[Rfam]
RNA sequence: UCGCACAAUGCACCCAGGCUUCUCUGAAACUCAAAAAGAUGAAGAUGAUAAAAGCCCCAACGCUCGUGCCAAAAUUAUGUGCCGUUCGUGUUGCAGUUUGGCCUUUAUGAACCUUCUGUUUUACUGGCUAAUCUGUGUCAAAAUCAAUGGCUGUAUAU
Numbered sequence: 001u002c003g004c005a006c007a008a009u010g011c012a013c014c015c016a017g018g019c020u021u022c023u024c025u026g027a028a029a030c031u032c033a034a035a036a037a038g039a040u041g042a043a044g045a046u047g048a049u050a051a052a053a054g055c056c057c058c059a060a061c062g063c064u065c066g067u068g069c070c071a072a073a074a075u076u077a078u079g080u081g082c083c084g085u086u087c088g089u090g091u092u093g094c095a096g097u098u099u100g101g102c103c104u105u106u107a108u109g110a111a112c113c114u115u116c117u118g119u120u121u122u123a124c125u126g127g128c129u130a131a132u133c134u135g136u137g138u139c140a141a142a143a144u145c146a147a148u149g150g151c152u153g154u155a156u157a158u
Base pairs, nucleotide, nucleotide: 003069004068005067006066008064010063011062017056018055019054020053021048022047023045024044025043081151082150083149084148085147086146089140090139092137093136094135095134096133101128102127103126
This 158-nucleotide RNA sequence from Carnegiea gigantea belongs to the Rfam family "small nucleolar RNA snoR134". Its family is annotated with nucleolus and RNA processing in the Gene Ontology. The match comes from Rfam's covariance-model search (74 bits). The family's consensus secondary structure was predicted with RNAalifold. Lineage of the source: Eukaryota > Spermatophyta > Magnoliopsida > Cactoideae > Carnegiea.